[Rfam]
Rfam assigns this 126-nucleotide RNA sequence from Ictidomys tridecemlineatus to the family "Small nucleolar RNA ACA64". Its family is annotated with nucleolus and RNA processing in the Gene Ontology.
RNA sequence: GUUGGUUGAAAAUCACCCUCGGCGCUGGCGGUGGCCGUGGGUGAGAUUCGGCGCCCAGAGCCUCCAGGGGCCUCAGCUCGCCGCCCACUACCAGUGUGGGAAGGCGAAACCCAGGCCCCGACAUCC
Numbered sequence: 001g002u003u004g005g006u007u008g009a010a011a012a013u014c015a016c017c018c019u020c021g022g023c024g025c026u027g028g029c030g031g032u033g034g035c036c037g038u039g040g041g042u043g044a045g046a047u048u049c050g051g052c053g054c055c056c057a058g059a060g061c062c063u064c065c066a067g068g069g070g071c072c073u074c075a076g077c078u079c080g081c082c083g084c085c086c087a088c089u090a091c092c093a094g095u096g097u098g099g100g101a102a103g104g105c106g107a108a109a110c111c112c113a114g115g116c117c118c119c120g121a122c123a124u125c126c
Base pairs, nucleotide, nucleotide: 005052006051007050008049009048010047013044014043015042016041021036022035023034067119069117070116071115072114073113078107079106080105081104082103086098087097088096
It is one of the family's seed sequences. Rfam classes the family as an H/ACA-box small nucleolar RNA. On this family, see Schattner et al., RNA 2006: "A computational screen for mammalian pseudouridylation guide H/ACA RNAs". Lineage of the source: Eukaryota > Chordata > Craniata > Xerinae > Ictidomys. Pairs were carried over by alignment from the consensus structure, which was predicted with WAR.